[Rfam]
RNA sequence: ACUUUGCAGCCCGACUUGAGUGGAAAUCCUUUUUGUUUUUUUCUAGAAAAACAAAAAGAUUGGGAACGGAAGGCGGAAAAGCUG
Numbered sequence: 001a002c003u004u005u006g007c008a009g010c011c012c013g014a015c016u017u018g019a020g021u022g023g024a025a026a027u028c029c030u031u032u033u034u035g036u037u038u039u040u041u042u043c044u045a046g047a048a049a050a051a052c053a054a055a056a057a058g059a060u061u062g063g064g065a066a067c068g069g070a071a072g073g074c075g076g077a078a079a080a081g082c083u084g
Stems, first nucleotide, its partner, number of pairs: 011076003015072002020067002025061004031056010

A member of the RNA family "Flavo-1 RNA", 84 nucleotides long.